[Rfam]
RNA sequence: GUUGAAAUGAAUUGAUUUAUGUUUGGAUAUACUCAUGUAUAAGUGAUUCUUAUGAGUUGAAGUUGUUUGAAUAG
Numbered sequence: 001g002u003u004g005a006a007a008u009g010a011a012u013u014g015a016u017u018u019a020u021g022u023u024u025g026g027a028u029a030u031a032c033u034c035a036u037g038u039a040u041a042a043g044u045g046a047u048u049c050u051u052a053u054g055a056g057u058u059g060a061a062g063u064u065g066u067u068u069g070a071a072u073a074g
Stems, first nucleotide, its partner, number of pairs: 012060007021053002025049004030045004
The family of this 74-nucleotide RNA sequence from Trifolium pratense is "MIR5272 microRNA precursor family".